[Rfam]
RNA: Flavo-1 RNA
RNA sequence: UAAUAGCCCGGAUUGCAGUGAAAAUCCUUUUUUUAAUACCGUAGUGCCAACGAAGGAAUUUAAAAAAGAUUGCAACGUAAAGCCGGAAAUAGC
Numbered sequence: 001u002a003a004u005a006g007c008c009c010g011g012a013u014u015g016c017a018g019u020g021a022a023a024a025u026c027c028u029u030u031u032u033u034u035a036a037u038a039c040c041g042u043a044g045u046g047c048c049a050a051c052g053a054a055g056g057a058a059u060u061u062a063a064a065a066a067a068g069a070u071u072g073c074a075a076c077g078u079a080a081a082g083c084c085g086g087a088a089a090u091a092g093c
Stems, first nucleotide, its partner, number of pairs: 009085003013081002018076002023071004029066005035060003